[Rfam]
RNA: narK RNA
RNA sequence: GGCCCGAGUAUUGCUGUAGCCCUGUCACAGGCAUCCAACGGCGGUUGCCACCGAUACGACAAAGGCGUCGC
Numbered sequence: 001g002g003c004c005c006g007a008g009u010a011u012u013g014c015u016g017u018a019g020c021c022c023u024g025u026c027a028c029a030g031g032c033a034u035c036c037a038a039c040g041g042c043g044g045u046u047g048c049c050a051c052c053g054a055u056a057c058g059a060c061a062a063a064g065g066c067g068u069c070g071c
Base pairs, nucleotide, nucleotide: 030049031048032047033046035044036043